[Rfam]
RNA sequence: UUUGCACCCAUAACCCAAGCUCAUGCCUUUCUCAGUGGUGUGAUCUUUUUUGGGGUGCAGAGAGUAAAUGAUCCUUGUCGCCUUUCUCUGAUGCUGCUGUGCCUUUGAAAGUGAAUCCAAGGUUCAACAAAC
Numbered sequence: 001u002u003u004g005c006a007c008c009c010a011u012a013a014c015c016c017a018a019g020c021u022c023a024u025g026c027c028u029u030u031c032u033c034a035g036u037g038g039u040g041u042g043a044u045c046u047u048u049u050u051u052g053g054g055g056u057g058c059a060g061a062g063a064g065u066a067a068a069u070g071a072u073c074c075u076u077g078u079c080g081c082c083u084u085u086c087u088c089u090g091a092u093g094c095u096g097c098u099g100u101g102c103c104u105u106u107g108a109a110a111g112u113g114a115a116u117c118c119a120a121g122g123u124u125c126a127a128c129a130a131a132c
Base pairs, nucleotide, nucleotide: 002060003059004058005057006056007055008054009053019045021043022042023041024040025039026038027037070125071124073122074121075120076119082111083110084109085108086107090105091104093102094101

This 132-nucleotide RNA from Cynoglossus semilaevis belongs to the Rfam family "Small nucleolar RNA SNORA68". U68 is a member of the H/ACA class of small nucleolar RNAs (snoRNAs) which act as guides in the the modification of uridines to pseudouridines. The match comes from Rfam's covariance-model search (67 bits).